[Rfam]
RNA sequence: AGGUCAUUUCAAAGAGAGCUUGCAGGGCUUGAAGCCAGAAACUCUUAAGACUAUGACCAGAGAUUGAUAUUCUUCGUAGGAUGCCACAGUCACUCAAUAGUGCUAUGUUUUCCCGAAGGGAUAUAGGA
Number, nucleotide and partner (000 for none) at each position: 001a000002g058003g057004u056005c055006a054007u053008u000009u000010c000011a000012a000013a000014g046015a045016g044017a043018g042019c000020u040021u039022g000023c038024a000025g000026g036027g035028c000029u000030u000031g000032a000033a000034g000035c027036c026037a000038g023039a021040a020041a000042c018043u017044c016045u015046u014047a000048a000049g000050a000051c000052u000053a007054u006055g005056a004057c003058c002059a000060g000061a000062g000063a000064u000065u000066g000067a000068u000069a000070u000071u121072c120073u119074u118075c000076g000077u000078a000079g113080g112081a111082u000083g000084c000085c000086a106087c000088a104089g103090u000091c102092a101093c100094u099095c000096a000097a000098u000099a094100g093101u092102g091103c089104u088105a000106u086107g000108u000109u000110u000111u081112c080113c079114c000115g000116a000117a000118g074119g073120g072121a071122u000123a000124u000125a000126g000127g000128a000

This 128-nucleotide RNA from Saimiri boliviensis belongs to the Rfam family "Small nucleolar RNA SNORA25". Rfam classes the family as an H/ACA-box small nucleolar RNA. Pairs were carried over by alignment from the consensus structure, which was predicted with RNAfold. The match comes from Rfam's covariance-model search (108 bits). Rfam's curators write: ACA25 is a member of the H/ACA class of snoRNA that guide the sites of modification of uridines to pseudouridines. Rfam 15.1 lists 1,129 matches to the family in 449 species.